[Rfam]
RNA sequence: GCAAAUUAUUCACCUGUUUCUUUUUGGCUUAUUUAUCUUCUCAUAGCAGGAGAGGCCGACUCGUUUGUAAAAAGUCAAAAACAAACAGAAAGCCUCCCAAAUGGGGGGCUUUUUCAUA
Numbered sequence: 001g002c003a004a005a006u007u008a009u010u011c012a013c014c015u016g017u018u019u020c021u022u023u024u025u026g027g028c029u030u031a032u033u034u035a036u037c038u039u040c041u042c043a044u045a046g047c048a049g050g051a052g053a054g055g056c057c058g059a060c061u062c063g064u065u066u067g068u069a070a071a072a073a074g075u076c077a078a079a080a081a082c083a084a085a086c087a088g089a090a091a092g093c094c095u096c097c098c099a100a101a102u103g104g105g106g107g108g109c110u111u112u113u114u115c116a117u118a
Stems, first nucleotide, its partner, number of pairs: 016086004021081010032070002034067002038051004052062003089112010

Rfam assigns this 118-nucleotide RNA from Vibrio azureus to the family "Phenylalanine leader peptide". Rfam links the family to the GO term cellular amino acid metabolic process. The organism belongs to Vibrio azureus, within Bacteria. The match comes from Rfam's covariance-model search (67 bits). On this family, see Zurawski et al., Proc Natl Acad Sci U S A 1978: "Nucleotide sequence of the leader region of the phenylalanine operon of Escherichia coli". By type it is a cis-regulatory leader. The family has 71 seed sequences and 379 matches in Rfam 15.1.